[Rfam]
RNA sequence: AAAUUCUUAAACGACGUAAGCCCUACCUCUCUUACAUCCUUACGGCUCCGAAGCCGUGCCAGUGUGAAUAAGUUUUGUUCAAAUAUA
Numbered sequence: 001a002a003a004u005u006c007u008u009a010a011a012c013g014a015c016g017u018a019a020g021c022c023c024u025a026c027c028u029c030u031c032u033u034a035c036a037u038c039c040u041u042a043c044g045g046c047u048c049c050g051a052a053g054c055c056g057u058g059c060c061a062g063u064g065u066g067a068a069u070a071a072g073u074u075u076u077g078u079u080c081a082a083a084u085a086u087a
Stems, first nucleotide, its partner, number of pairs: 035066002039062002041058007
RNA: BsrC
Organism: Bacillus solimangrovi